[Rfam]
RNA sequence: CGUCAGAGCCUCCCCCUCUUUUUGGGUGGGUGGGGUGAUGGCGUGCCUUUUGAAGAAUGA
Dot-bracket structure: .((((..(((((...................)))))..))))...(.(........).).